A member of the RNA family "c-di-AMP riboswitch aptamer (ydaO/yuaA leader)" from Dendrosporobacter quercicolus, 142 nucleotides long. It scores 72 bits against the family's covariance model. The source organism's lineage runs through Bacteria, Bacillati, Selenomonadales, Sporomusaceae and Dendrosporobacter.
[Rfam]
RNA sequence: AUAAUUAUUAAGCUGAAUCCUAUUUGGUACGGGGGACCCAUUUGACAUUUACGGGGAUAAUCCAUUGACAUGGAAGGGUAAUUCUCAUUCUUCUCUUUUCCUAUCCCGACAGCUAACCCCGGAGGCUCCUACAAGAGAGGUG
Numbered sequence: 001a002u003a004a005u006u007a008u009u010a011a012g013c014u015g016a017a018u019c020c021u022a023u024u025u026g027g028u029a030c031g032g033g034g035g036a037c038c039c040a041u042u043u044g045a046c047a048u049u050u051a052c053g054g055g056g057a058u059a060a061u062c063c064a065u066u067g068a069c070a071u072g073g074a075a076g077g078g079u080a081a082u083u084c085u086c087a088u089u090c091u092u093c094u095c096u097u098u099u100c101c102u103a104u105c106c107c108g109a110c111a112g113c114u115a116a117c118c119c120c121g122g123a124g125g126c127u128c129c130u131a132c133a134a135g136a137g138a139g140g141u142g
Stems, first nucleotide, its partner, number of pairs: 011127004019027002030121005039053001054107003062073004076101003